A member of the RNA family "Bacterial RNase P class A" from Schwartzia succinivorans, 351 nucleotides long. Gene Ontology terms of the family: tRNA processing, ribonuclease P activity and dimeric ribonuclease P complex. It is annotated as a ribozyme.
RNA sequence: CGAGUAUGAAAGGCAAUCGCUGGUGUCCUUGAGGCACUUGAGGAAAGUCCGGGCUCCACAGGGCAGCGUGCUGGAUAACGUCCAGCAAGGGUGACCUUCGGGAAAGUGUCAUAGAAAAGAAAACCGCCGGGCAACCGGUAAGGGUGGAAAGGUGCGGUAAGAGCGCACCAGCAGUCAGGUGACUGGCUGGCUUGAUAAACCCCACGCGGAGCAAGACCAAAUAGGGAAGGGAUGAUGCGGCCCGCGGAACCUUCCGGGUUGAGUCGCUUGAGCUUGCAGGUAACUGUAAGUCCAGAUAAAUGAUUGCUGCCGCUUUGCGGUACAGAACUCGGCUUAUUGAGUACUCGCACG
Number, nucleotide and partner (000 for none) at each position: 001c347002g346003a345004g344005u343006a342007u341008g000009a000010a338011a337012g308013g307014c306015a305016a304017u303018c302019g000020c040021u000022g038023g037024u036025g035026u034027c033028c000029u000030u000031g000032a000033g027034g026035c025036a024037c023038u022039u000040g020041a000042g000043g000044a000045a335046a334047g333048u000049c332050c331051g330052g329053g328054c211055u210056c209057c208058a000059c000060a000061g243062g242063g241064c240065a000066g207067c206068g205069u204070g203071c085072u084073g083074g082075a081076u000077a000078a000079c000080g000081u075082c074083c073084a072085g071086c100087a098088a097089g096090g095091g000092u000093g000094a000095c090096c089097u088098u087099c000100g086101g202102g201103a000104a000105a000106g200107u199108g196109u195110c194111a000112u000113a000114g000115a000116a000117a000118a000119g000120a000121a000122a000123a000124c143125c142126g139127c138128c137129g136130g135131g000132c000133a000134a000135c130136c129137g128138g127139u126140a000141a000142g125143g124144g000145u000146g000147g000148a000149a000150a000151g169152g168153u167154g166155c165156g164157g000158u000159a000160a000161g000162a000163g000164c156165g155166c154167a153168c152169c151170a000171g191172c189173a188174g187175u186176c185177a184178g183179g000180u000181g000182a000183c178184u177185g176186g175187c174188u173189g172190g000191c171192u000193u000194g110195a109196u108197a000198a000199a107200c106201c102202c101203c070204a069205c068206g067207c066208g057209g056210a055211g054212c000213a000214a000215g265216a264217c263218c261219a000220a000221a000222u000223a000224g000225g255226g254227a253228a252229g251230g250231g000232a000233u000234g000235a000236u246237g245238c244239g000240g064241c063242c062243c061244g238245c237246g236247g000248a000249a000250c230251c229252u228253u227254c226255c225256g000257g000258g000259u000260u000261g218262a000263g217264u216265c215266g000267c000268u000269u000270g000271a000272g291273c290274u289275u288276g287277c286278a285279g284280g000281u000282a000283a000284c279285u278286g277287u276288a275289a274290g273291u272292c000293c000294a000295g000296a000297u000298a000299a000300a000301u000302g018303a017304u016305u015306g014307c013308u012309g000310c000311c000312g000313c000314u000315u000316u000317g000318c000319g000320g000321u000322a000323c000324a000325g000326a000327a000328c053329u052330c051331g050332g049333c047334u046335u045336a000337u011338u010339g000340a000341g007342u006343a005344c004345u003346c002347g001348c000349a000350c000351g000